[Rfam]
RNA: eL15-Euryarchaeota ribosomal protein leader
RNA sequence: CGGGAUCCGUCCCGUUAGGAAUGUAGCCUGAUUCAGGCUGAACCUGGUG
Number, nucleotide and partner (000 for none) at each position: 001c014002g013003g012004g011005a010006u000007c000008c000009g000010u005011c004012c003013c002014g001015u000016u000017a045018g044019g043020a000021a000022u000023g000024u000025a039026g038027c037028c036029u035030g000031a000032u000033u000034c000035a029036g028037g027038c026039u025040g000041a000042a000043c019044c018045u017046g000047g000048u000049g000